[Rfam]
RNA: Actinobacteria sRNA Ms_IGR-5
Organism: Phytoactinopolyspora halophila
RNA sequence: ACACGGGAAAGGAGGUGGUCCAGCAGAUGAAUAGCUCUUGGACACGUGAGGUGGCUGCUCGCUAGCAGCGUGCCCGAAUCGAGGACCUAGGUGGCCUCGUUCUGUCGGCAGGUGUGCUGGCAAUACGGAGUAGUCACCCGGCCCGUGGGCUCCGGGGUCAGUCCGCCCCGGCCGUGCCUCGUGCACGGAAGCGGCCCACGGGCUGUCUUCG
Numbered sequence: 001a002c003a004c005g006g007g008a009a010a011g012g013a014g015g016u017g018g019u020c021c022a023g024c025a026g027a028u029g030a031a032u033a034g035c036u037c038u039u040g041g042a043c044a045c046g047u048g049a050g051g052u053g054g055c056u057g058c059u060c061g062c063u064a065g066c067a068g069c070g071u072g073c074c075c076g077a078a079u080c081g082a083g084g085a086c087c088u089a090g091g092u093g094g095c096c097u098c099g100u101u102c103u104g105u106c107g108g109c110a111g112g113u114g115u116g117c118u119g120g121c122a123a124u125a126c127g128g129a130g131u132a133g134u135c136a137c138c139c140g141g142c143c144c145g146u147g148g149g150c151u152c153c154g155g156g157g158u159c160a161g162u163c164c165g166c167c168c169c170g171g172c173c174g175u176g177c178c179u180c181g182u183g184c185a186c187g188g189a190a191g192c193g194g195c196c197c198a199c200g201g202g203c204u205g206u207c208u209u210c211g
Base pairs, nucleotide, nucleotide: 014059015058016057017056018055019054061121062120063119064118065117066116068115069114070113071112074108075107076106139205140204141203142202143201144200145199146198147197148196149195150194151193153171155169156168157167